[Rfam]
RNA sequence: UUAAAGGGUGUUUGCCGCUUCGUGGCUUCUUGUUCGCACGUGGGCUGGGGUUUCGGCUUCGGUCCGCGAUUUAUGGCUAUCAAGACAUACCUACCCAACUUGUAAUUUUUAGAGCAGAGAGGCUGUUGGCUAUCCUCAUGUACCGGCGCAUCC
Numbered sequence: 001u002u003a004a005a006g007g008g009u010g011u012u013u014g015c016c017g018c019u020u021c022g023u024g025g026c027u028u029c030u031u032g033u034u035c036g037c038a039c040g041u042g043g044g045c046u047g048g049g050g051u052u053u054c055g056g057c058u059u060c061g062g063u064c065c066g067c068g069a070u071u072u073a074u075g076g077c078u079a080u081c082a083a084g085a086c087a088u089a090c091c092u093a094c095c096c097a098a099c100u101u102g103u104a105a106u107u108u109u110u111a112g113a114g115c116a117g118a119g120a121g122g123c124u125g126u127u128g129g130c131u132a133u134c135c136u137c138a139u140g141u142a143c144c145g146g147c148g149c150a151u152c153c
Base pairs, nucleotide, nucleotide: 008101010099011098012093013038014037015036017034039068040067041066042065043064044063045062046061047060048059049058050057069092072089073088074087075086120151122149123148125147126146127145128144129143131142132141133140